[Rfam]
RNA: mir-1302 microRNA precursor family
Organism: Pongo abelii
RNA sequence: UUUUUAAGAUAAGUAUAUCCCAUGUAGUGUUUGGGAUAUACUUACCCUAAAA
Numbered sequence: 001u002u003u004u005u006a007a008g009a010u011a012a013g014u015a016u017a018u019c020c021c022a023u024g025u026a027g028u029g030u031u032u033g034g035g036a037u038a039u040a041c042u043u044a045c046c047c048u049a050a051a052a
Base pairs, nucleotide, nucleotide: 006048008046010044011043012042014040015039016038018036019035020034021033022031